[Rfam]
RNA sequence: UGCCCCUGCCUUUAUUGGCAUCCUCUCCCAAACUUUCCGGCCGGCCCUUCGGGGUCGGCCUUUUUUUUGGGGACG
Number, nucleotide and partner (000 for none) at each position: 001u000002g000003c000004c000005c000006c000007u000008g019009c018010c017011u000012u000013u000014a000015u000016u000017g010018g009019c008020a000021u000022c000023c000024u000025c000026u000027c000028c000029c000030a000031a000032a000033c000034u000035u000036u000037c000038c000039g060040g059041c058042c057043g056044g055045c054046c053047c052048u000049u000050c000051g000052g047053g046054g045055u044056c043057g042058g041059c040060c039061u000062u000063u000064u000065u000066u000067u000068u000069g000070g000071g000072g000073a000074c000075g000
RNA: Makes More Granules Regulator RNA (mmgR)
Organism: Novosphingobium sp.